[Rfam]
RNA sequence: GGCAUUUUAUUUCAAAACCAUGAUUAGCCCCGGAAUCUAAUUAUGAUGAAAUAAACGAA
Numbered sequence: 001g002g003c004a005u006u007u008u009a010u011u012u013c014a015a016a017a018c019c020a021u022g023a024u025u026a027g028c029c030c031c032g033g034a035a036u037c038u039a040a041u042u043a044u045g046a047u048g049a050a051a052u053a054a055a056c057g058a059a
Stems, first nucleotide, its partner, number of pairs: 006055007019045009
Rfam assigns this 59-nucleotide sequence from Virgibacillus phasianinus to the family "Ribosomal protein L13 leader". Rfam's curators write: This family is a putative r-protein leader autoregulatory structure found in B. subtilis and other low-GC Gram-positive bacteria. It scores 47 bits against the family's covariance model. NCBI's taxonomy places the organism under Bacteria, Bacillati, Bacilli, Bacillaceae, Virgibacillus. By type it is a cis-regulatory leader. A reference for the family is Zengel and Lindahl (1994), "Diverse mechanisms for regulating ribosomal protein synthesis in Escherichia coli", Prog Nucleic Acid Res Mol Biol.